[Rfam]
Rfam assigns this 211-nucleotide RNA from Xanthobacter dioxanivorans to the family "Bradyrhizobiaceae sRNA BjrC174". The organism belongs to Xanthobacter, within Bacteria. The family's RNA type in Rfam is small RNA.
RNA sequence: AUCACGCCAACGUCACCGGAAUCACAGUCUCGCCGAAAUUCCGUCAAUCGCGCGCCGCGGCCGGAGGCGAUCUUCAUUCGCGUAGCAGGGCCGGUUCGCGAGGCGCUCCGGUUAUCCCAGCCCCCCAGCCCCCCGGGGUGCGCGCGGACCGGCCACUGCUGCGCACCGACUUCAGACCCCCAAAGCAGGCCACCUUCCCGGUGGCCUUUUU
Dot-bracket structure: ..................................((...........................................(((((((..(((((((((((...(((((((((........((......))...)))))))))..)))))))))))...))))))).......)).............((((((((.....))))))))....